[Rfam]
RNA sequence: UGCUCCUGUUCUGUAAUCAGAUCGGAUAAAUCUUUCGCCUUUUACUAAAGAUUUCCGUGGCUGCGGAACAUUAAGGGAGUUAUCACUAAUUUUUUGACACAACCAUUUUGAUUGGUUUU
Numbered sequence: 001u002g003c004u005c006c007u008g009u010u011c012u013g014u015a016a017u018c019a020g021a022u023c024g025g026a027u028a029a030a031u032c033u034u035u036c037g038c039c040u041u042u043u044a045c046u047a048a049a050g051a052u053u054u055c056c057g058u059g060g061c062u063g064c065g066g067a068a069c070a071u072u073a074a075g076g077g078a079g080u081u082a083u084c085a086c087u088a089a090u091u092u093u094u095u096g097a098c099a100c101a102a103c104c105a106u107u108u109u110g111a112u113u114g115g116u117u118u119u
Stems, first nucleotide, its partner, number of pairs: 003079004009068007017060003028054008097119001101117005
Dot-bracket structure: ..((((..(((((((.(((........((((((((...........))))))))...))).))))))).......)))).................(...(((((.......))))).)
Record summary:
Shown here is a 119-nucleotide RNA sequence from Circinella minor, a member of the family "U5 spliceosomal RNA". U5 RNA is a component of both types of known spliceosome. The source organism's lineage runs through Eukaryota, Opisthokonta, Mucoromycetes, Mucorales and Circinella.